[Rfam]
RNA sequence: AGCACUGAAACGCUGAAUCUUAUUGAGCGGGGGAACCAACUUUUGACUGCAUGCUGCAGUCUUGGGGUGAAGCCAUGAAUGGCAGGGAGACUCUUACCUUCCUAAUCCGACAGCUAACUCCGUAAGCGUUGUUUAAGAGAGUG
Dot-bracket structure: ..........((((...((.....))((((((....((........................))(((.....(((....)))..((((..........))))...))).........)))))).))))...............
Rfam assigns this 143-nucleotide RNA from Bacillus sp. NRRL B-14911 to the family "c-di-AMP riboswitch aptamer (ydaO/yuaA leader)". Its family is annotated with regulation of gene expression and cyclic-di-AMP binding in the Gene Ontology. The sequence is in the family's curated seed alignment. The pairing is the family consensus, mapped onto this sequence.